RAGATH-18 RNA: a 63-nucleotide RNA sequence. It is one of the family's seed sequences. The family's consensus secondary structure is taken from published work. By type it is a small RNA. About the family: Actinobacteria, Firmicutes, Fusobacteria, Thermotogae (1 example).
RNA sequence: CCUUUGGAGAGUUAUACCAAACAGGAGUAGUUUUUAACGAAACUGGACUCUAUGAAUUAGGAA
Numbered sequence: 001c002c003u004u005u006g007g008a009g010a011g012u013u014a015u016a017c018c019a020a021a022c023a024g025g026a027g028u029a030g031u032u033u034u035u036a037a038c039g040a041a042a043c044u045g046g047a048c049u050c051u052a053u054g055a056a057u058u059a060g061g062a063a
Stems, first nucleotide, its partner, number of pairs: 001061003009050005022045003030038003